RNA sequence: AGGUUUCGGUGUAACUGGCGACAAGUGUGGGAUUAACCACGAUGGAGCACCGGAAUAAACGGCCGGUCGCCUGGGCAGAAGAG
Numbered sequence: 001a002g003g004u005u006u007c008g009g010u011g012u013a014a015c016u017g018g019c020g021a022c023a024a025g026u027g028u029g030g031g032a033u034u035a036a037c038c039a040c041g042a043u044g045g046a047g048c049a050c051c052g053g054a055a056u057a058a059a060c061g062g063c064c065g066g067u068c069g070c071c072u073g074g075g076c077a078g079a080a081g082a083g
Stems, first nucleotide, its partner, number of pairs: 003056010015044001017071005027040004060078001062076003
Overview
Rfam assigns this 83-nucleotide sequence from Paenibacillus spiritus to the family "ZMP/ZTP riboswitch aptamer (pfl RNA motif)". Pairs were carried over by alignment from the consensus structure, which is taken from published work.